[Rfam]
RNA sequence: AUACUAAGCCUCAUAUCAACUGAACAGUCUAUCUUCUUCAAGCAACGCUUCGUUCACCAUCAACUCAAUCAAAAUGACUCCCUGCUCCUGCAACACCUGCUCCUGCUCCAGCGACUGCAACGGCUGCUCCUGCUCCUCUUGCGGUGUAUGUAUCU
Numbered sequence: 001a002u003a004c005u006a007a008g009c010c011u012c013a014u015a016u017c018a019a020c021u022g023a024a025c026a027g028u029c030u031a032u033c034u035u036c037u038u039c040a041a042g043c044a045a046c047g048c049u050u051c052g053u054u055c056a057c058c059a060u061c062a063a064c065u066c067a068a069u070c071a072a073a074a075u076g077a078c079u080c081c082c083u084g085c086u087c088c089u090g091c092a093a094c095a096c097c098u099g100c101u102c103c104u105g106c107u108c109c110a111g112c113g114a115c116u117g118c119a120a121c122g123g124c125u126g127c128u129c130c131u132g133c134u135c136c137u138c139u140u141g142c143g144g145u146g147u148a149u150g151u152a153u154c155u
Stems, first nucleotide, its partner, number of pairs: 083113004097105001117142003126133002

Shown here is a 155-nucleotide sequence from Aspergillus fumigatus, a member of the family "A. fumigatus sRNA Afu_254". Rfam 15.1 lists 185 matches to the family in 142 species. The literature on the family includes a 2008 paper in Nucleic Acids Res by Jochl et al., "Small ncRNA transcriptome analysis from Aspergillus fumigatus suggests a novel mechanism for regulation of protein synthesis".